RNA sequence: GCUGUAAUGUGUGCAGCUUUCAUGUGUGUCCAAUGGCAGCGUCUGUCUGUGCCUUGCCCCCAGAUCCUGCUAUCCCCAUAAACAUGUAGCUGACGAAUAAAGUUGGAAUCACAGUGCAAUAUCAUUUUAUUUGAAAUAAGUUGAUUUCCUGUGUUCUUUAAUGAAUAA
Numbered sequence: 001g002c003u004g005u006a007a008u009g010u011g012u013g014c015a016g017c018u019u020u021c022a023u024g025u026g027u028g029u030c031c032a033a034u035g036g037c038a039g040c041g042u043c044u045g046u047c048u049g050u051g052c053c054u055u056g057c058c059c060c061c062a063g064a065u066c067c068u069g070c071u072a073u074c075c076c077c078a079u080a081a082a083c084a085u086g087u088a089g090c091u092g093a094c095g096a097a098u099a100a101a102g103u104u105g106g107a108a109u110c111a112c113a114g115u116g117c118a119a120u121a122u123c124a125u126u127u128u129a130u131u132u133g134a135a136a137u138a139a140g141u142u143g144a145u146u147u148c149c150u151g152u153g154u155u156c157u158u159u160a161a162u163g164a165a166u167a168a
Stems, first nucleotide, its partner, number of pairs: 013087002027080003034072006041065005049057002104161001106159003118147002121145004126140006
Description: A member of the RNA family "Small nucleolar RNA SNORA23" from Crocuta crocuta, 168 nucleotides long. Gene Ontology terms of the family: nucleolus and RNA processing. Rfam classes the family as an H/ACA-box small nucleolar RNA. For this family Rfam cites "RNomics: an experimental approach that identifies 201 candidates for novel, small, non-messenger RNAs in mouse" (Huttenhofer et al., EMBO J, 2001). From the family's description: The members of this family belong to the H/ACA class of snoRNAs which are thought to guide the sites of modification of uridines to pseudouridines. The source organism's lineage runs through Eukaryota, Mammalia, Eutheria, Laurasiatheria and Crocuta. A search with the family's covariance model found it, with a score of 51 bits.